[Rfam]
This 53-nucleotide sequence from Menidia menidia belongs to the Rfam family "UnaL2 LINE 3' element". It is annotated as a cis-regulatory element. Pairs were carried over by alignment from the consensus structure, which is taken from published work.
RNA sequence: GAUUGUCUACUCUGUAAGUCGCUUUGGAUAAAAGCGUCUGCCAAAUGCAUAAA
Numbered sequence: 001g002a003u004u005g006u007c008u009a010c011u012c013u014g015u016a017a018g019u020c021g022c023u024u025u026g027g028a029u030a031a032a033a034g035c036g037u038c039u040g041c042c043a044a045a046u047g048c049a050u051a052a053a
Stems, first nucleotide, its partner, number of pairs: 013043001014041003020036006